[Rfam]
RNA sequence: CAAUUCUCAGUUACCUUAUCACGUGUUGCUAAAGUUCAAUACAUUUAGUGAACUUUGGCACAACGCUGAUUAGGUGACUGAUUAUUU
Numbered sequence: 001c002a003a004u005u006c007u008c009a010g011u012u013a014c015c016u017u018a019u020c021a022c023g024u025g026u027u028g029c030u031a032a033a034g035u036u037c038a039a040u041a042c043a044u045u046u047a048g049u050g051a052a053c054u055u056u057g058g059c060a061c062a063a064c065g066c067u068g069a070u071u072a073g074g075u076g077a078c079u080g081a082u083u084a085u086u087u
Stems, first nucleotide, its partner, number of pairs: 002086002007081010018070003025061002028059008